Overview: Small nucleolar RNA SNORD79: an 83-nucleotide RNA from Perca flavescens. Its family is annotated with nucleolus and RNA processing in the Gene Ontology. snoRNA U79 or Z22 is found in intron 7 of the gas5 gene in humans and is also present in mice. The base pairs follow the family's consensus structure, which was predicted with PFOLD. It is annotated as a C/D-box small nucleolar RNA.

RNA sequence: AACUGUCAAUUGAUGAUAUUGUUUACAAAACAAUGGGAAUCUCUCUGAAUAAGAGUGAAAGAAUACUUUUUACUGAUGCAGUG
Dot-bracket structure: .((((.((....................................................................)))))).
Numbered sequence: 001a002a003c004u005g006u007c008a009a010u011u012g013a014u015g016a017u018a019u020u021g022u023u024u025a026c027a028a029a030a031c032a033a034u035g036g037g038a039a040u041c042u043c044u045c046u047g048a049a050u051a052a053g054a055g056u057g058a059a060a061g062a063a064u065a066c067u068u069u070u071u072a073c074u075g076a077u078g079c080a081g082u083g
Stems, first nucleotide, its partner, number of pairs: 002082004007078002